This 168-nucleotide RNA sequence from Hordeum vulgare belongs to the Rfam family "Small nucleolar RNA snoR77". It scores 52 bits against the family's covariance model. On this family, see Marker et al., Curr Biol 2002: "Experimental RNomics: identification of 140 candidates for small non-messenger RNAs in the plant Arabidopsis thaliana". The family's RNA type in Rfam is H/ACA-box small nucleolar RNA.
[Rfam]
RNA sequence: AAAUAAGUUAUUUAAAAAUGACUCAACUUUGUACGAACUUUAUAAAAUUGAGUUAAUUUUAAGUCACUUAUUUUGUGACGGAGGGACUAAAUCUUCUGCUCUUCAGAUUAGUUGAGGGGGAGGCUCUCCUUCCCUCCUUGAAGCUUGUCUAGUAGUUUUAAGAACAUA
Number, nucleotide and partner (000 for none) at each position: 001a000002a072003a071004u070005a069006a000007g068008u000009u000010a064011u063012u062013u061014a060015a059016a058017a057018a000019u000020g000021a000022c000023u000024c000025a000026a000027c000028u000029u000030u000031g000032u000033a000034c000035g000036a000037a000038c000039u000040u000041u000042a000043u000044a000045a000046a000047a000048u000049u000050g000051a000052g000053u000054u000055a000056a000057u017058u016059u015060u014061a013062a012063g011064u010065c000066a000067c000068u007069u005070a004071u003072u002073u000074u000075g000076u000077g000078a000079c000080g000081g000082a000083g000084g000085g000086a000087c000088u000089a000090a000091a000092u000093c162094u161095u160096c000097u000098g157099c000100u155101c000102u000103u000104c000105a150106g149107a148108u147109u000110a000111g144112u143113u142114g000115a000116g136117g135118g134119g133120g132121a131122g130123g000124c000125u000126c000127u000128c000129c000130u122131u121132c120133c119134c118135u117136c116137c000138u000139u000140g000141a000142a113143g112144c111145u000146u000147g108148u107149c106150u105151a000152g000153u000154a000155g100156u000157u098158u000159u000160a095161a094162g093163a000164a000165c000166a000167u000168a000